[Rfam]
RNA sequence: CAUAUAAAUCUUUAUAUGUUCUUAUGCGGAACCAAACCGCGUAGGCCUAGAACGCCACUUAAUUUAAGGAGAAAAAAAUG
Numbered sequence: 001c002a003u004a005u006a007a008a009u010c011u012u013u014a015u016a017u018g019u020u021c022u023u024a025u026g027c028g029g030a031a032c033c034a035a036a037c038c039g040c041g042u043a044g045g046c047c048u049a050g051a052a053c054g055c056c057a058c059u060u061a062a063u064u065u066a067a068g069g070a071g072a073a074a075a076a077a078a079u080g
Stems, first nucleotide, its partner, number of pairs: 001018006023043007044056003
The family of this 80-nucleotide sequence is "freshwater-2 RNA". The sequence is in the family's curated seed alignment. It is annotated as a cis-regulatory element.